[Rfam]
RNA sequence: ACGCGUCAAGCGCCGAAGGCAGGAGCGGGGGAACCACAGGUAAGUGCCGGACGGUCCGUGGAACGAGGGGGCUGAACGGCUUGGGGUGAAGCCGCGGGAGACCGCGGCCGGGCAACUCACAGUCCGAACCCGACAGCUCACCUCGUAGGCGUCGGUGAGGAAACCA
Numbered sequence: 001a002c003g004c005g006u007c008a009a010g011c012g013c014c015g016a017a018g019g020c021a022g023g024a025g026c027g028g029g030g031g032a033a034c035c036a037c038a039g040g041u042a043a044g045u046g047c048c049g050g051a052c053g054g055u056c057c058g059u060g061g062a063a064c065g066a067g068g069g070g071g072c073u074g075a076a077c078g079g080c081u082u083g084g085g086g087u088g089a090a091g092c093c094g095c096g097g098g099a100g101a102c103c104g105c106g107g108c109c110g111g112g113c114a115a116c117u118c119a120c121a122g123u124c125c126g127a128a129c130c131c132g133a134c135a136g137c138u139c140a141c142c143u144c145g146u147a148g149g150c151g152u153c154g155g156u157g158a159g160g161a162a163a164c165c166a
Base pairs, nucleotide, nucleotide: 011151012150013149014148025146026145027144028143029142030141035083036082084131085130086129092107093106094105095104110125111124112123113122
RNA: c-di-AMP riboswitch aptamer (ydaO/yuaA leader)
Organism: Streptomyces buecherae